[Rfam]
RNA sequence: UAACAGCCAUAGCUCCGAGCUUUAUUUGCUAAGUCGCAAUAGUUAAGUUGUACGAUAGGUAAUAAAGCCAGUGACGAGGUUUGUCACCAGGGUUGAUCUAGAAAUGGAUUAGCCUCCCGUAUUUGGAAAGGUGUUCCGUGGCGAAACAA
Numbered sequence: 001u002a003a004c005a006g007c008c009a010u011a012g013c014u015c016c017g018a019g020c021u022u023u024a025u026u027u028g029c030u031a032a033g034u035c036g037c038a039a040u041a042g043u044u045a046a047g048u049u050g051u052a053c054g055a056u057a058g059g060u061a062a063u064a065a066a067g068c069c070a071g072u073g074a075c076g077a078g079g080u081u082u083g084u085c086a087c088c089a090g091g092g093u094u095g096a097u098c099u100a101g102a103a104a105u106g107g108a109u110u111a112g113c114c115u116c117c118c119g120u121a122u123u124u125g126g127a128a129a130g131g132u133g134u135u136c137c138g139u140g141g142c143g144a145a146a147c148a149a
Stems, first nucleotide, its partner, number of pairs: 011135003015131002019068007027061003033056004071087005090115011116126002
Shown here is a 149-nucleotide RNA from Photobacterium damselae, a member of the family "Molybdenum/Tungsten riboswitch aptamer (Moco RNA motif)". It scores 92 bits against the family's covariance model. NCBI's taxonomy places the organism under Bacteria, Pseudomonadota, Photobacterium, Photobacterium damselae, Photobacterium damselae subsp. damselae. Rfam links the family to the GO terms molybdenum ion binding, regulation of gene expression and tungstate binding.